[Rfam]
Nucleotides: 049
Stems, first nucleotide, its partner, number of pairs: 003024003006019005031049005
Number, partner (000 for none) and nucleotide at each position: 001000g002000g003024u004023u005022g006019g007018g008017c009016a010015g011000g012000u013000a014000a015010c016009u017008g018007c019006u020000u021000u022005c023004a024003a025000g026000u027000u028000u029000u030000g031049a032048g033047c034046u035045u036000a037000a038000g039000g040000g041000u042000g043000g044000a045035a046034a047033g048032c049031u